[Rfam]
RNA sequence: UGGCUCGAACAGGGACCUGAAACCAGGGACCUCAGAGGAAGAGACAGCGACGGCCCCGCUAACAAAGACAAAAGGAAUUAAACUGAUCACCGCGGGAACCUGCCGCGUCUGAAUCGAAGGUAAGUGACGCGUCCGAAAUGGGACAAGAAUUAAGCCAACAUCAAAUAUAUGUAGGACAAUUAAAAGAGGCUUUAAAGAUACGAGGAGUAAAGGUUAAAGGUAAUGACUUGUUUAAAUUUUUUGAUUUUGUAAAAGAUACUUGCCCUU
Numbered sequence: 001u002g003g004c005u006c007g008a009a010c011a012g013g014g015a016c017c018u019g020a021a022a023c024c025a026g027g028g029a030c031c032u033c034a035g036a037g038g039a040a041g042a043g044a045c046a047g048c049g050a051c052g053g054c055c056c057c058g059c060u061a062a063c064a065a066a067g068a069c070a071a072a073a074g075g076a077a078u079u080a081a082a083c084u085g086a087u088c089a090c091c092g093c094g095g096g097a098a099c100c101u102g103c104c105g106c107g108u109c110u111g112a113a114u115c116g117a118a119g120g121u122a123a124g125u126g127a128c129g130c131g132u133c134c135g136a137a138a139u140g141g142g143a144c145a146a147g148a149a150u151u152a153a154g155c156c157a158a159c160a161u162c163a164a165a166u167a168u169a170u171g172u173a174g175g176a177c178a179a180u181u182a183a184a185a186g187a188g189g190c191u192u193u194a195a196a197g198a199u200a201c202g203a204g205g206a207g208u209a210a211a212g213g214u215u216a217a218a219g220g221u222a223a224u225g226a227c228u229u230g231u232u233u234a235a236a237u238u239u240u241u242u243g244a245u246u247u248u249g250u251a252a253a254a255g256a257u258a259c260u261u262g263c264c265c266u267u
Base pairs, nucleotide, nucleotide: 012023032044033043082121083120084119087113088111089110091107092106093105094104095103129144132142133141134140135139151194152193153192154190155189156188201243202242203241204240205239206238207237208236211229212228213227214226215225216224252267253266255264257262